The family of this 195-nucleotide RNA sequence from Penicillium oxalicum is "U2 spliceosomal RNA". It scores 149 bits against the family's covariance model. The literature on the family includes a 1997 paper in Nucleic Acids Res by Zwieb, "The uRNA database". Rfam describes the family as follows. U2 is a small nuclear RNA (snRNA) component of the spliceosome (involved in pre-mRNA splicing). Complementary binding between U2 snRNA (in an area lying towards the 5' end but 3' to hairpin I) and the branchpoint sequence (BPS) of the intron results the bulging out of an unpaired adenosine, on the BPS, which initiates a nucleophilic attack at the intronic 5' splice site, thus starting the first of two transesterification reactions that mediate splicing. Pairs were carried over by alignment from the consensus structure, which is taken from published work.

RNA sequence: CCAGCUCUCUUUGCCAAUUGGCUUAGAUCAAGUGUAGUAUCUGUUCUUUUCAGUUUAAUCUCUGAAAGUUUUCUGUCAAAGAAAACACAUUGAUUAUUCUCAUUUUUGGAUCUCGCGACUUGGCCUCUGUGCUUGCGCAUGCCUCGUCGCACAGUGUCAUCGGGCUUACACUACCCCCGAUCGACGCGAACCCCC
Numbered sequence: 001c002c003a004g005c006u007c008u009c010u011u012u013g014c015c016a017a018u019u020g021g022c023u024u025a026g027a028u029c030a031a032g033u034g035u036a037g038u039a040u041c042u043g044u045u046c047u048u049u050u051c052a053g054u055u056u057a058a059u060c061u062c063u064g065a066a067a068g069u070u071u072u073c074u075g076u077c078a079a080a081g082a083a084a085a086c087a088c089a090u091u092g093a094u095u096a097u098u099c100u101c102a103u104u105u106u107u108g109g110a111u112c113u114c115g116c117g118a119c120u121u122g123g124c125c126u127c128u129g130u131g132c133u134u135g136c137g138c139a140u141g142c143c144u145c146g147u148c149g150c151a152c153a154g155u156g157u158c159a160u161c162g163g164g165c166u167u168a169c170a171c172u173a174c175c176c177c178c179g180a181u182c183g184a185c186g187c188g189a190a191c192c193c194c195c
Stems, first nucleotide, its partner, number of pairs: 008027003013022003048067006069085006115150005122143001128139004154187005159181006